[Rfam]
RNA sequence: AAAGAAAGGAGCAAUAAUCAUUUUCUUGUUCUGUCAAGAGGGUGCUAUUGCUCCUUU
Numbered sequence: 001a002a003a004g005a006a007a008g009g010a011g012c013a014a015u016a017a018u019c020a021u022u023u024u025c026u027u028g029u030u031c032u033g034u035c036a037a038g039a040g041g042g043u044g045c046u047a048u049u050g051c052u053c054c055u056u057u
Stems, first nucleotide, its partner, number of pairs: 005057012021042001023040006
The record is a 57-nucleotide RNA sequence from Solanum hypacrarthrum, which matches "Plastid-psbA-4 3UTR RNA" in Rfam. About the family: Plastid psbA-4 is a non-coding RNA (ncRNA) present in plastids. For this family Rfam cites "Retrograde signaling in plants: A critical review focusing on the GUN pathway and beyond" (Richter et al., Plant Commun, 2023). The base pairs follow the family's consensus structure, which was predicted with LocARNA. By type it is a cis-regulatory element.